Rfam assigns this 111-nucleotide RNA sequence from Sporomusa malonica to the family "SAM riboswitch aptamer (S box leader)". A search with the family's covariance model found it, with a score of 76 bits. The family is grouped with related families in Rfam's "SAM clan". Taxonomically the source falls in Sporomusa (Bacteria, Bacillati, Bacillota, Sporomusaceae).
[Rfam]
RNA sequence: UACUCAUCAAGAGUUGGUGGAGGGACUGGCCCGAUGAAACCGCGGCAACCAUUUAGCAGUUUAUCUGCUAAAAACGGUGCCAAUUCCGGCGGCAAAACCGUAAGAUGGGAG
Numbered sequence: 001u002a003c004u005c006a007u008c009a010a011g012a013g014u015u016g017g018u019g020g021a022g023g024g025a026c027u028g029g030c031c032c033g034a035u036g037a038a039a040c041c042g043c044g045g046c047a048a049c050c051a052u053u054u055a056g057c058a059g060u061u062u063a064u065c066u067g068c069u070a071a072a073a074a075c076g077g078u079g080c081c082a083a084u085u086c087c088g089g090c091g092g093c094a095a096a097a098c099c100g101u102a103a104g105a106u107g108g109g110a111g
Base pairs, nucleotide, nucleotide: 001111003109004108005107006106007105008104013043015042016041017040018039022032023031024030026089027088028087029086044081045080046079047078049077050076052072053071054070055069056068057067058066085103090100091099092098